[Rfam]
Shown here is a 107-nucleotide RNA sequence from Brumicola nitratireducens, a member of the family "t44 RNA". NCBI's taxonomy places the organism under Bacteria, Pseudomonadati, Alteromonadales, Alteromonadaceae, Brumicola nitratireducens. This family consists of a number of bacterial RNA genes of between 135 and 170 bases in length. The t44 gene has been identified in several species of enteric bacteria but homologs have also been identified in Pseudomonas and Coxiella species. The t44 gene is found between the map and rpsB genes in all species in the full alignment apart from Shigella flexneri. The function of this RNA is unknown.
RNA sequence: GUACAAAUUAACUAAAAACACACAUAUACCGACACUGAUCUCGGGGUGUCUAACGCGUUGUUAUUACAACGUUUUGGAUCGAGAGAAGGGGUAUAUGGAGGCCUAAC
Numbered sequence: 001g002u003a004c005a006a007a008u009u010a011a012c013u014a015a016a017a018a019c020a021c022a023c024a025u026a027u028a029c030c031g032a033c034a035c036u037g038a039u040c041u042c043g044g045g046g047u048g049u050c051u052a053a054c055g056c057g058u059u060g061u062u063a064u065u066a067c068a069a070c071g072u073u074u075u076g077g078a079u080c081g082a083g084a085g086a087a088g089g090g091g092u093a094u095a096u097g098g099a100g101g102c103c104u105a106a107c
Stems, first nucleotide, its partner, number of pairs: 023097008035088002039084005048079005